[Rfam]
RNA sequence: ACGGCCAUAGCGCCGAAUCCCCGGGUGGCAUCGGGGAGCGGGGGAACCAGGAACCGAGGCCUCGUGGCCUAGGGGUGAGUCGCCGGAGGGGCUCCGCCCGGCCGGCGUAGGGAGUGUCCUUUCGUCCCGAACCCGACAGCUAACCUCGCAGGCGCCAUAGAAGGGGACG
Numbered sequence: 001a002c003g004g005c006c007a008u009a010g011c012g013c014c015g016a017a018u019c020c021c022c023g024g025g026u027g028g029c030a031u032c033g034g035g036g037a038g039c040g041g042g043g044g045a046a047c048c049a050g051g052a053a054c055c056g057a058g059g060c061c062u063c064g065u066g067g068c069c070u071a072g073g074g075g076u077g078a079g080u081c082g083c084c085g086g087a088g089g090g091g092c093u094c095c096g097c098c099c100g101g102c103c104g105g106c107g108u109a110g111g112g113a114g115u116g117u118c119c120u121u122u123c124g125u126c127c128c129g130a131a132c133c134c135g136a137c138a139g140c141u142a143a144c145c146u147c148g149c150a151g152g153c154g155c156c157a158u159a160g161a162a163g164g165g166g167a168c169g
Stems, first nucleotide, its partner, number of pairs: 011154004018037007038149006048072001073134003081107006110128004
Record summary: Rfam assigns this 169-nucleotide sequence from Rubrobacter marinus to the family "c-di-AMP riboswitch aptamer (ydaO/yuaA leader)". The source organism's lineage runs through Bacteria, Actinomycetota, Rubrobacteria, Rubrobacterales and Rubrobacter. Gene Ontology terms of the family: regulation of gene expression and cyclic-di-AMP binding.